This 154-nucleotide RNA from Antrihabitans stalagmiti belongs to the Rfam family "c-di-AMP riboswitch aptamer (ydaO/yuaA leader)". It scores 84 bits against the family's covariance model.
RNA sequence: CGACGGUCACCGCCUAAUCGAAGUCCGUGGACUUCGAGCCGGGGAACCAUGUUCUCUGGGGUGAAUCUCCCUGUACCGCUUGCGGUUUGGGAGUAGGGCUGCCCUUCCAGGCCCGAACCCGUCAGCUAACUCGGUCGGCGGACCGAUGGAAGAA
Number, nucleotide and partner (000 for none) at each position: 001c000002g000003a000004c000005g000006g000007u000008c000009a000010c000011c140012g139013c138014c137015u000016a000017a000018u037019c036020g035021a034022a033023g032024u031025c030026c000027g000028u000029g000030g025031a024032c023033u022034u021035c020036g019037a018038g135039c134040c133041g132042g131043g130044g000045a000046a000047c000048c058049a057050u000051g000052u000053u000054c000055u000056c000057u049058g048059g120060g119061g118062u000063g000064a000065a000066u000067c093068u092069c091070c090071c000072u000073g000074u000075a000076c000077c000078g000079c000080u000081u000082g000083c000084g000085g000086u000087u000088u000089g000090g070091g069092a068093g067094u000095a000096g114097g113098g112099c111100u000101g000102c000103c000104c000105u000106u000107c000108c000109a000110g000111g099112c098113c097114c096115g000116a000117a000118c061119c060120c059121g000122u000123c000124a000125g000126c000127u000128a000129a000130c043131u042132c041133g040134g039135u038136c000137g014138g013139c012140g011141g000142a000143c000144c000145g000146a000147u000148g000149g000150a000151a000152g000153a000154a000